Shown here is a 305-nucleotide RNA sequence from Gongylonema pulchrum, a member of the family "Nuclear RNase P". NCBI's taxonomy places the organism under Eukaryota, Opisthokonta, Eumetazoa, Spirurina, Gongylonema. Ribonuclease P (RNase P) is a ubiquitous endoribonuclease, found in archaea, bacteria and eukarya as well as chloroplasts and mitochondria. Its best characterised activity is the generation of mature 5'-ends of tRNAs by cleaving the 5'-leader elements of precursor-tRNAs.

RNA sequence: GUGGUGAGAAGCAGAUGCAAGGAGCGACGCAAGGACAUUGUGAUUGUCCAGAAUUGGCUCCUGGGAAGGUCUGAGGUAAGGCCUCCCGGGCGUACCCUCUAGCGGGGGGAUGGCGGACUAUGCCAUGGUACCGUACUAGAAAUAUGUUAGCUGUCAUGAUUGCCACCGGGCACAAGAUGGCCGCAUUGCGGUUGGAUGCCGGCACGUGGCGGCUUUGAACCACGGUGCCGGUGCCAGCUGUGCUUAGUGCGAUCGUCAUCACAUCCUAGCGAUGGUGAACUCAAUUCAGACUACUCUUUCGCCAC
Numbered sequence: 001g002u003g004g005u006g007a008g009a010a011g012c013a014g015a016u017g018c019a020a021g022g023a024g025c026g027a028c029g030c031a032a033g034g035a036c037a038u039u040g041u042g043a044u045u046g047u048c049c050a051g052a053a054u055u056g057g058c059u060c061c062u063g064g065g066a067a068g069g070u071c072u073g074a075g076g077u078a079a080g081g082c083c084u085c086c087c088g089g090g091c092g093u094a095c096c097c098u099c100u101a102g103c104g105g106g107g108g109g110a111u112g113g114c115g116g117a118c119u120a121u122g123c124c125a126u127g128g129u130a131c132c133g134u135a136c137u138a139g140a141a142a143u144a145u146g147u148u149a150g151c152u153g154u155c156a157u158g159a160u161u162g163c164c165a166c167c168g169g170g171c172a173c174a175a176g177a178u179g180g181c182c183g184c185a186u187u188g189c190g191g192u193u194g195g196a197u198g199c200c201g202g203c204a205c206g207u208g209g210c211g212g213c214u215u216u217g218a219a220c221c222a223c224g225g226u227g228c229c230g231g232u233g234c235c236a237g238c239u240g241u242g243c244u245u246a247g248u249g250c251g252a253u254c255g256u257c258a259u260c261a262c263a264u265c266c267u268a269g270c271g272a273u274g275g276u277g278a279a280c281u282c283a284a285u286u287c288a289g290a291c292u293a294c295u296c297u298u299u300c301g302c303c304a305c
Base pairs, nucleotide, nucleotide: 001305002304003303004302007299008298009297013259020062021061022060023059024058033049034048035047036046037045071289072288073287074286075285080235081234082233095109096108097107098106099105110126111125112124113123114122115121127229128228129227130226131225132224133223150213151211262274263273264272265271